[Rfam]
RNA sequence: UAUCUCUGGCUCACGCGUCUUCGAACGACUAAGCGAUUCGCCUUUUACUAACCGCUUCCGGGCGUGUGGGCUCUCAAUGAGUAUUUACCAAUUUUUGGCGGCUUUUCCUAACGGAAAAGCU
Number, nucleotide and partner (000 for none) at each position: 001u000002a000003u000004c081005u080006c079007u000008g000009g071010c070011u069012c068013a067014c066015g065016c064017g063018u062019c061020u000021u000022c000023g000024a000025a000026c000027g000028a000029c000030u000031a057032a056033g055034c054035g053036a000037u051038u050039c000040g000041c000042c000043u000044u000045u000046u000047a000048c000049u000050a038051a037052c000053c035054g034055c033056u032057u031058c000059c000060g000061g019062g018063c017064g016065u015066g014067u013068g012069g011070g010071c009072u000073c000074u000075c000076a000077a000078u000079g006080a005081g004082u000083a000084u000085u000086u000087a000088c000089c000090a000091a000092u000093u000094u000095u000096u000097g000098g000099c000100g000101g120102c119103u118104u117105u116106u115107c000108c000109u000110a000111a000112c000113g000114g000115a106116a105117a104118a103119g102120c101121u000
U5 spliceosomal RNA: a 121-nucleotide RNA sequence from Panagrolaimus sp. PS1159. The family's consensus secondary structure is taken from published work. Rfam's curators write: U5 RNA is a component of both types of known spliceosome. The precise function of this molecule is unknown, though it is known that the 5' loop is required for splice site selection and p220 binding, and that both the 3' stem-loop and the Sm site are important for Sm protein binding and cap methylation. The organism belongs to Panagrolaimus, within Eukaryota. The match comes from Rfam's covariance-model search (74 bits). It is annotated as a spliceosomal small nuclear RNA.